[Rfam]
RNA sequence: UACAUAAUUUGGCAAACUGUGUGAAAGCAUAGGACGCAAAGCCACGGGUCUUCGCAUAGCAUGAUAGCCGGGUUGCAAAG
Dot-bracket structure: ...........((...((((((....))))))...))..((((.((((((....(...)...)))..)))))))......
Numbered sequence: 001u002a003c004a005u006a007a008u009u010u011g012g013c014a015a016a017c018u019g020u021g022u023g024a025a026a027g028c029a030u031a032g033g034a035c036g037c038a039a040a041g042c043c044a045c046g047g048g049u050c051u052u053c054g055c056a057u058a059g060c061a062u063g064a065u066a067g068c069c070g071g072g073u074u075g076c077a078a079a080g
Stems, first nucleotide, its partner, number of pairs: 012037002017032006040074004045070003048065003055059001
Source information: Shown here is an 80-nucleotide RNA sequence from Halalkalibacter akibai, a member of the family "c-di-GMP-I riboswitch aptamer". The source organism's lineage runs through Bacteria, Bacilli, Bacillaceae, Halalkalibacter and Halalkalibacter akibai. Its family is annotated with cyclic-di-GMP binding in the Gene Ontology.